[Rfam]
RNA sequence: GUGAAGGCCGACCACCUCCACAGAAGCGAUCCUCGUGCUAGAGAUCCACAGCUCACCUGUUUUGUAAUCAGGAAGUUGUUCGCAAACAACGGUCACAGUACGGUUGACCACCUACUGUCCUCUCUCCCCCCCCACCGCCCAUCAUGCUGCU
Numbered sequence: 001g002u003g004a005a006g007g008c009c010g011a012c013c014a015c016c017u018c019c020a021c022a023g024a025a026g027c028g029a030u031c032c033u034c035g036u037g038c039u040a041g042a043g044a045u046c047c048a049c050a051g052c053u054c055a056c057c058u059g060u061u062u063u064g065u066a067a068u069c070a071g072g073a074a075g076u077u078g079u080u081c082g083c084a085a086a087c088a089a090c091g092g093u094c095a096c097a098g099u100a101c102g103g104u105u106g107a108c109c110a111c112c113u114a115c116u117g118u119c120c121u122c123u124c125u126c127c128c129c130c131c132c133c134a135c136c137g138c139c140c141a142u143c144a145u146g147c148u149g150c151u
Base pairs, nucleotide, nucleotide: 001021002020003019004017006016007015028046029045030044031043033042034041048079049078050077051076052075056072057071058070059069091123092122095118096117097116098115099114100113102112103111
Rfam assigns this 151-nucleotide RNA from Barley yellow dwarf virus OYV to the family "Barley yellow dwarf virus 5'UTR". Rfam classes the family as a cis-regulatory element. The source organism's lineage runs through Viruses, Tolivirales, Tombusviridae, Regressovirinae and Luteovirus.